Rfam assigns this 65-nucleotide sequence from Tenacibaculum sp. SG-28 to the family "S15-Flavobacteria ribosomal protein leader". The base pairs follow the family's consensus structure, which is taken from published work.
RNA sequence: UAUAUUUGCACCUUCAAUGUAAAUAGCAUUGUAUACAUAAUAAUCAUUUAAAUAAUAUUGGCAUG
Numbered sequence: 001u002a003u004a005u006u007u008g009c010a011c012c013u014u015c016a017a018u019g020u021a022a023a024u025a026g027c028a029u030u031g032u033a034u035a036c037a038u039a040a041u042a043a044u045c046a047u048u049u050a051a052a053u054a055a056u057a058u059u060g061g062c063a064u065g
Stems, first nucleotide, its partner, number of pairs: 015031005

A search with the family's covariance model found it, with a score of 79 bits.
NCBI's taxonomy places the organism under Bacteria, Pseudomonadati, Flavobacteriia, Flavobacteriales, Tenacibaculum.
A reference for the family is Eckert and Weinberg (2020), "Discovery of 20 novel ribosomal leader candidates in bacteria and archaea", BMC Microbiol.